[Rfam]
RNA sequence: CUCGAUAAAGGCAAACCACUCGAAAGGGUGGGACGCAAAGCCACUAAUCCACCCUUGUUCCGUUGACAUCGGAAGAAUGGCGGACAGCAGGGCUGCCGGGC
Numbered sequence: 001c002u003c004g005a006u007a008a009a010g011g012c013a014a015a016c017c018a019c020u021c022g023a024a025a026g027g028g029u030g031g032g033a034c035g036c037a038a039a040g041c042c043a044c045u046a047a048u049c050c051a052c053c054c055u056u057g058u059u060c061c062g063u064u065g066a067c068a069u070c071g072g073a074a075g076a077a078u079g080g081c082g083g084a085c086a087g088c089a090g091g092g093c094u095g096c097c098g099g100g101c
Stems, first nucleotide, its partner, number of pairs: 003098002011036002016031006034087001039094004044090002048084002
Rfam assigns this 101-nucleotide sequence from an Olavius algarvensis Delta 1 endosymbiont to the family "c-di-GMP-I-GGC riboswitch aptamer". Lineage of the source: Bacteria > delta/epsilon subdivisions > Deltaproteobacteria. Its Rfam clan is "c-di-GMP_I riboswitch clan". The family's consensus secondary structure is taken from published work. A search with the family's covariance model found it, with a score of 59 bits.